Source information: A member of the RNA family "Fluoride riboswitch aptamer (crcB RNA motif)" from Synechococcales cyanobacterium C42_A2020_086, 97 nucleotides long. Lineage of the source: Bacteria > Bacillati > Cyanobacteriota > Cyanophyceae > Synechococcales. It scores 45 bits against the family's covariance model. The base pairs follow the family's consensus structure, which is taken from published work.
[Rfam]
Nucleotides: 097
Stems, first nucleotide, its partner, number of pairs: 010025004016088006032078002
Number, partner (000 for none) and nucleotide at each position: 001000u002000a003000g004000a005000a006000a007000c008000c009000a010025g011024g012023c013022a014000a015000u016088g017087g018086a019085g020084c021083u022013u023012g024011c025010c026000u027000u028000a029000a030000c031000c032078g033077c034000u035000u036000c037000u038000g039000a040000a041000g042000c043000u044000u045000u046000g047000u048000u049000u050000a051000u052000u053000u054000u055000g056000u057000u058000u059000a060000u061000a062000u063000u064000g065000a066000c067000c068000u069000u070000u071000c072000a073000g074000a075000a076000u077033g078032c079000u080000g081000a082000u083021g084020g085019c086018u087017c088016c089000u090000a091000c092000u093000g094000u095000u096000u097000u